[Rfam]
RNA sequence: UGCAGAUGAUGUGAAGGAAUAUUUGCUAUCUGAGCAAUGGUGAGGACGCCCGAACCACCAAGAUCGCUGAUGCA
Numbered sequence: 001u002g003c004a005g006a007u008g009a010u011g012u013g014a015a016g017g018a019a020u021a022u023u024u025g026c027u028a029u030c031u032g033a034g035c036a037a038u039g040g041u042g043a044g045g046a047c048g049c050c051c052g053a054a055c056c057a058c059c060a061a062g063a064u065c066g067c068u069g070a071u072g073c074a
Stems, first nucleotide, its partner, number of pairs: 001074004
Dot-bracket structure: ((((..................................................................))))